[Rfam]
RNA sequence: AACCCCCUGAUUCAUCCUCUCACUUUGGCCGGUCAGAGAUGAAAUCAGGGGGCGCAAACUGCCUUGCUGGCAGAAAGGAUUAUAGCAAAUGCGUACCCUAUUGCAAUACAGCCCGGCCAAUAAG
Numbered sequence: 001a002a003c004c005c006c007c008u009g010a011u012u013c014a015u016c017c018u019c020u021c022a023c024u025u026u027g028g029c030c031g032g033u034c035a036g037a038g039a040u041g042a043a044a045u046c047a048g049g050g051g052g053c054g055c056a057a058a059c060u061g062c063c064u065u066g067c068u069g070g071c072a073g074a075a076a077g078g079a080u081u082a083u084a085g086c087a088a089a090u091g092c093g094u095a096c097c098c099u100a101u102u103g104c105a106a107u108a109c110a111g112c113c114c115g116g117c118c119a120a121u122a123a124g
Stems, first nucleotide, its partner, number of pairs: 003052009012042005018036001020035001025120008
The record is a 124-nucleotide RNA sequence from Citrobacter freundii, which matches "Pseudoknot of the regulatory region of the repBA gene" in Rfam. The sequence is in the family's curated seed alignment. Taxonomically the source falls in Citrobacter freundii complex (Bacteria, Pseudomonadota, Gammaproteobacteria, Citrobacter). Pairs were carried over by alignment from the consensus structure, which is taken from published work. Rfam links the family to the GO term translation.